Overview:
ALIL pseudoknot: a 117-nucleotide RNA sequence from Methylogaea oryzae.
RNA sequence: CGCGUUUUUCGCCCAGGCGGAGCUCGACCGCCGGCUCAAGUCCUGAGGGAUUUCGUCGGCGCUCAUCGGGAGACCUUCGGGGGCGAGCCGAUUUGCCAGGUGUUGCAGAUCGCCCCG
Numbered sequence: 001c002g003c004g005u006u007u008u009u010c011g012c013c014c015a016g017g018c019g020g021a022g023c024u025c026g027a028c029c030g031c032c033g034g035c036u037c038a039a040g041u042c043c044u045g046a047g048g049g050a051u052u053u054c055g056u057c058g059g060c061g062c063u064c065a066u067c068g069g070g071a072g073a074c075c076u077u078c079g080g081g082g083g084c085g086a087g088c089c090g091a092u093u094u095g096c097c098a099g100g101u102g103u104u105g106c107a108g109a110u111c112g113c114c115c116c117g
Stems, first nucleotide, its partner, number of pairs: 016032005078117005089112002092109005098103001

Notes
Rfam classes the family as a cis-regulatory element. The organism belongs to Methylogaea, within Bacteria. Rfam links the family to the GO term positive regulation of translational frameshifting.